[Rfam]
RNA sequence: GUGCAAUGAAUGUAUUGGAUAAGUUUCGGCUGAUUCUGAUUGAUGUAAACUUUGUAACUUGCUGAGCAC
Dot-bracket structure: ((((.............................................................))))
The family of this 69-nucleotide RNA sequence from Caenorhabditis remanei is "Caenorhabditis snoRNA ceN108".
It scores 70 bits against the family's covariance model.
It is annotated as a C/D-box small nucleolar RNA.
Rfam links the family to the GO terms nucleolus and RNA processing.
The source organism's lineage runs through Eukaryota, Opisthokonta, Metazoa, Rhabditida and Caenorhabditis.